[Rfam]
RNA sequence: UGCAUGGUAUCCGGCAUUGGAUCGGAUGGCGAUGCAGCCUAACGAGGU
Numbered sequence: 001u002g003c004a005u006g007g008u009a010u011c012c013g014g015c016a017u018u019g020g021a022u023c024g025g026a027u028g029g030c031g032a033u034g035c036a037g038c039c040u041a042a043c044g045a046g047g048u
Stems, first nucleotide, its partner, number of pairs: 001036005007030002011025004015020001
This 48-nucleotide RNA sequence from Pseudidiomarina indica belongs to the Rfam family "L31-Gammaproteobacteria ribosomal protein leader". The match comes from Rfam's covariance-model search (47 bits). On this family, see Eckert and Weinberg, BMC Microbiol 2020: "Discovery of 20 novel ribosomal leader candidates in bacteria and archaea". Pairs were carried over by alignment from the consensus structure, which is taken from published work.